RNA sequence: CUUAGCACGUUUCCUUAUCAUUUCGUCAGUCCAGUUGAUCUUGAGCACUGGACGGAGAACUGAUAAGGGCUUGUGGGGGA
Numbered sequence: 001c002u003u004a005g006c007a008c009g010u011u012u013c014c015u016u017a018u019c020a021u022u023u024c025g026u027c028a029g030u031c032c033a034g035u036u037g038a039u040c041u042u043g044a045g046c047a048c049u050g051g052a053c054g055g056a057g058a059a060c061u062g063a064u065a066a067g068g069g070c071u072u073g074u075g076g077g078g079g080a
Base pairs, nucleotide, nucleotide: 012069013068014067015066016065017064018063019062020061022059023058024057026055027054030051031050
RNA: mir-184 microRNA precursor family